About this RNA: A member of the RNA family "Burkholderia RNA 7 (anti-hemB)" from Roseateles saccharophilus, 88 nucleotides long. The organism belongs to Roseateles, within Bacteria. A search with the family's covariance model found it, with a score of 55 bits. Rfam 15.1 lists 479 matches to the family in 458 species. The base pairs follow the family's consensus structure, which is taken from published work. A reference for the family is Weinberg et al. (2007), "Identification of 22 candidate structured RNAs in bacteria using the CMfinder comparative genomics pipeline", Nucleic Acids Res. Gene Ontology terms of the family: protein binding and bacterial biofilm matrix. Rfam's curators write: This RNA motif was identified by computational search in b-proteobacteria Burkholderia. Co-purified with Hfq, expression confirmed by Northern blot.
RNA sequence: CCCCUGCUUUUCCUCCCUGAGCAGGAGCCUCGGCGAAAUAUGAACGUUAGGCUUUGAAGCCUCGGCCGCUGGGCCGAGGCUUUCUUUU
Numbered sequence: 001c002c003c004c005u006g007c008u009u010u011u012c013c014u015c016c017c018u019g020a021g022c023a024g025g026a027g028c029c030u031c032g033g034c035g036a037a038a039u040a041u042g043a044a045c046g047u048u049a050g051g052c053u054u055u056g057a058a059g060c061c062u063c064g065g066c067c068g069c070u071g072g073g074c075c076g077a078g079g080c081u082u083u084c085u086u087u088u
Base pairs, nucleotide, nucleotide: 003025004024005023006022007021008020027052028051029050030049033047034046035045059080060079061078062077063076064075065074066073